[Rfam]
RNA sequence: CCUCUUUAACCCAGUGGGCGCAUCACCUAUAUUCAUGAUGUUCGCUUCGGCGGACUAUGGCGAUAAACGCGCGUGUAAUAACCAGGCUGGACCCGGGUGCGAAUCCCGGCGGCUCCACCAAUCCUCUUCCGCACGUUGGGCGGCGAGCAUGGGGCCGAAUAGGAUCGACAGAUGGCUAAAGACGUGGCUUUCGCCCGAAUGGGCUUCGUUACCAGCCCAUAUUUAGUAGUUGCCAACGACAACUAUGCUGAAGAGGUCGCUCUCGCUGCAUAGCAGCGCGGGUAUCUCGCACUUAAGUCCUGACCUCUAGCAAGGUCAGGCGGGGCUCGGGGGCGCCUGGCAACAGAAGCCCCCACU
Number, nucleotide and partner (000 for none) at each position: 001c000002c000003u000004c000005u000006u000007u000008a000009a000010c000011c000012c000013a000014g000015u000016g000017g000018g000019c000020g000021c000022a000023u000024c000025a000026c000027c000028u000029a000030u000031a000032u000033u000034c000035a000036u000037g000038a000039u000040g055041u054042u053043c052044g051045c000046u000047u000048c000049g000050g000051c044052g043053g042054a041055c040056u000057a000058u000059g195060g194061c193062g192063a191064u000065a000066a000067a000068c000069g188070c187071g185072c184073g183074u182075g000076u000077a000078a000079u000080a000081a000082c000083c174084a173085g000086g000087c171088u170089g169090g000091a000092c000093c109094c108095g107096g106097g105098u000099g000100c000101g000102a000103a000104u000105c097106c096107c095108g094109g093110c157111g156112g155113c154114u153115c152116c151117a000118c000119c000120a000121a000122u000123c000124c000125u000126c000127u000128u000129c000130c000131g000132c000133a000134c000135g000136u000137u000138g000139g000140g000141c000142g000143g000144c000145g000146a000147g000148c000149a000150u000151g116152g115153g114154g113155c112156c111157g110158a000159a000160u000161a000162g000163g000164a000165u000166c000167g000168a000169c089170a088171g087172a000173u084174g083175g000176c000177u000178a000179a000180a000181g000182a074183c073184g072185u071186g000187g070188c069189u000190u000191u063192c062193g061194c060195c059196c208197g207198a206199a205200u000201g000202g218203g217204c000205u199206u198207c197208g196209u000210u000211a000212c000213c000214a000215g000216c000217c203218c202219a000220u000221a000222u000223u000224u000225a000226g000227u000228a000229g000230u000231u000232g000233c000234c000235a000236a000237c000238g000239a000240c000241a000242a000243c000244u000245a000246u000247g000248c000249u000250g000251a000252a000253g000254a000255g000256g000257u000258c000259g000260c000261u000262c000263u000264c000265g000266c000267u000268g000269c000270a000271u000272a000273g000274c000275a000276g000277c000278g000279c000280g000281g000282g000283u000284a000285u000286c000287u000288c000289g000290c000291a000292c000293u000294u000295a000296a000297g000298u000299c000300c000301u000302g000303a000304c000305c000306u000307c000308u000309a000310g000311c000312a000313a000314g000315g000316u000317c000318a000319g000320g000321c000322g000323g338324g337325g336326c335327u000328c000329g354330g353331g352332g351333g350334c349335g326336c325337c324338u323339g000340g000341c000342a000343a000344c000345a000346g000347a000348a000349g334350c333351c332352c331353c330354c329355a000356c000357u000
RNA: Alphaproteobacteria transfer-messenger RNA
Organism: Oceanicaulis sp. HTCC2633